[Rfam]
Overview:
This 156-nucleotide RNA sequence from Apostasia shenzhenica belongs to the Rfam family "Small nucleolar RNA snoR145". Pairs were carried over by alignment from the consensus structure, which was predicted with mfold. The family's RNA type in Rfam is H/ACA-box small nucleolar RNA. Its family is annotated with RNA processing and nucleolus in the Gene Ontology. Taxonomically the source falls in Apostasia (Eukaryota, Viridiplantae, Streptophyta, Orchidaceae).
RNA sequence: AAGGGAAGGUCCCAGCAGAGGGGCAGAGAUCUCCAUUGUUGAGGCCUCUCUAAUGUUUUCAAUAAUUCCUUCGCAGAUCAAUAUGGUUGAUCCGUUUCGUAGGGCGCAUUGAGUUUUUUUUGGUUUAGUUGCGUCUGGAAGCACGGAUAUAUUGCG
Numbered sequence: 001a002a003g004g005g006a007a008g009g010u011c012c013c014a015g016c017a018g019a020g021g022g023g024c025a026g027a028g029a030u031c032u033c034c035a036u037u038g039u040u041g042a043g044g045c046c047u048c049u050c051u052a053a054u055g056u057u058u059u060c061a062a063u064a065a066u067u068c069c070u071u072c073g074c075a076g077a078u079c080a081a082u083a084u085g086g087u088u089g090a091u092c093c094g095u096u097u098c099g100u101a102g103g104g105c106g107c108a109u110u111g112a113g114u115u116u117u118u119u120u121u122g123g124u125u126u127a128g129u130u131g132c133g134u135c136u137g138g139a140a141g142c143a144c145g146g147a148u149a150u151a152u153u154g155c156g
Stems, first nucleotide, its partner, number of pairs: 003074001005072005011020001013018001026050003031043003035039001091147005103135002106132002108129006